[Rfam]
RNA sequence: UCGUGCUAGGUGGGGAGUUAGCGGUGCCUUGUAACCCGAAAUCCGCUUAGCGGGGCUGAAUUCCCUUUGAAGGGCGUGGGCUGGUACAGCCGUUUCUAAUUUUGGCGUCGAUUGGACACUGCGCAACAGACGAAUAUGAACCCCGUCAGGUCCGGAAGGAAGCAGCGGUAAGUAUCCCCGGCUGUGUCGUGGUCUACUCUAAUCAGAUGCCAGAAGGUGGGCGGUUGAUUUCCACUCGGUUCGACAAAGGGUGCACGG
Dot-bracket structure: ((((((..(((((((.(((...))).))))....((((............))))))).....(((((((..((((..(((..((......((((.((...((.(((...(((((((.((((((((.(((.((.((((.....((((....(((....)))....))))...)))).)..).))))).))))))....)))))))....))).)).)).)).)).......))..))).))))..))))))).))))))
A member of the RNA family "Bacterial large signal recognition particle RNA" from Desulforhabdus amnigena, 258 nucleotides long. The signal recognition particle (SRP) is a universally conserved ribonucleoprotein involved in the co-translational targeting of proteins to membranes. Taxonomically the source falls in Desulforhabdus (Bacteria, Thermodesulfobacteriota, Syntrophobacterales, Syntrophobacteraceae). The literature on the family includes a 2003 paper in Nucleic Acids Res by Rosenblad et al., "SRPDB: Signal Recognition Particle Database". By type it is a non-coding RNA gene. Pairs were carried over by alignment from the consensus structure, which is taken from published work.